[Rfam]
A member of the RNA family "drz-agam-1 ribozyme" from Aedes aegypti, 97 nucleotides long. Rfam links the family to the GO term catalytic activity. The family's consensus secondary structure is taken from published work.

RNA sequence: UGUCCAGUAACUCCUAUCCCUACCUCCCCGUGGUGCGAACGAAUAACCGUAGGGAAGAUCGGGUGGUGGGACCUUGGUCGUAUGCUGACAGGGAAGG
Numbered sequence: 001u002g003u004c005c006a007g008u009a010a011c012u013c014c015u016a017u018c019c020c021u022a023c024c025u026c027c028c029c030g031u032g033g034u035g036c037g038a039a040c041g042a043a044u045a046a047c048c049g050u051a052g053g054g055a056a057g058a059u060c061g062g063g064u065g066g067u068g069g070g071a072c073c074u075u076g077g078u079c080g081u082a083u084g085c086u087g088a089c090a091g092g093g094a095a096g097g
Stems, first nucleotide, its partner, number of pairs: 013097003017093003022034003040084002043081002046078003